The record is a 108-nucleotide RNA from Microbacterium esteraromaticum, which matches "Glycine riboswitch aptamer" in Rfam. A search with the family's covariance model found it, with a score of 44 bits. NCBI's taxonomy places the organism under Bacteria, Actinomycetota, Actinomycetes, Micrococcales, Microbacterium. This family represents the bacterial glycine riboswitch.
RNA sequence: CCGCUCUGAAAAGCGAUGCUUCCGCAUCCGCCGACGGUGAAAGCUCUUUUCGAUGGCUCCGUGAGUCCGCCGAAGAGCGAAACUCUCAGGCCCGAUGACAGAGGGGGA
Numbered sequence: 001c002c003g004c005u006c007u008g009a010a011a012a013g014c015g016a017u018g019c020u021u022c023c024g025c026a027u028c029c030g031c032c033g034a035c036g037g038u039g040a041a042a043g044c045u046c047u048u049u050u051c052g053a054u055g056g057c058u059c060c061g062u063g064a065g066u067c068c069g070c071c072g073a074a075g076a077g078c079g080a081a082a083c084u085c086u087c088a089g090g091c092c093c094g095a096u097g098a099c100a101g102a103g104g105g106g107g108a
Base pairs, nucleotide, nucleotide: 001106002105004103005102006101007100008099015028016027017026018025030091031090032089033087034086037085039083043078044077045076046075047074048073049072